[Rfam]
RNA sequence: CUCUUAUCAAGAGUGGUGGAGGGAUGUGCCCUACGAAACCCAGCAACCGUCAUUGUAUGACAUGGUGCUAAUUCACAUAAAGUUAAUCAUACUUUAGAAGAUGAGAG
Numbered sequence: 001c002u003c004u005u006a007u008c009a010a011g012a013g014u015g016g017u018g019g020a021g022g023g024a025u026g027u028g029c030c031c032u033a034c035g036a037a038a039c040c041c042a043g044c045a046a047c048c049g050u051c052a053u054u055g056u057a058u059g060a061c062a063u064g065g066u067g068c069u070a071a072u073u074c075a076c077a078u079a080a081a082g083u084u085a086a087u088c089a090u091a092c093u094u095u096a097g098a099a100g101a102u103g104a105g106a107g
Stems, first nucleotide, its partner, number of pairs: 001107008013041001015040003021031003025077004042069004047065002049061004073099001078096006
Description:
This 107-nucleotide RNA sequence from Staphylococcus hominis belongs to the Rfam family "SAM riboswitch aptamer (S box leader)". The SAM riboswitch is found upstream of a number of genes which code for proteins involved in methionine or cysteine biosynthesis in Gram-positive bacteria. It is one of the family's seed sequences.